Rfam assigns this 74-nucleotide RNA from Devosia equisanguinis to the family "tRNA". Transfer RNA (tRNA) molecules are approximately 80 nucleotides in length. Their secondary structure includes four short double-helical elements and three loops (D, anti-codon, and T loops). It is annotated as a transfer RNA. The organism belongs to Devosia, within Bacteria. The family's consensus secondary structure is taken from published work.
RNA sequence: GGCCCCGUAGCUCAGCAGGAUAGAGCGCAGGAUUCCUAAUCCUGAGGCCACUGGUUCGAAUCCAGUCGGGGUCA
Numbered sequence: 001g002g003c004c005c006c007g008u009a010g011c012u013c014a015g016c017a018g019g020a021u022a023g024a025g026c027g028c029a030g031g032a033u034u035c036c037u038a039a040u041c042c043u044g045a046g047g048c049c050a051c052u053g054g055u056u057c058g059a060a061u062c063c064a065g066u067c068g069g070g071g072u073c074a
Stems, first nucleotide, its partner, number of pairs: 001073007010026004028044005050066005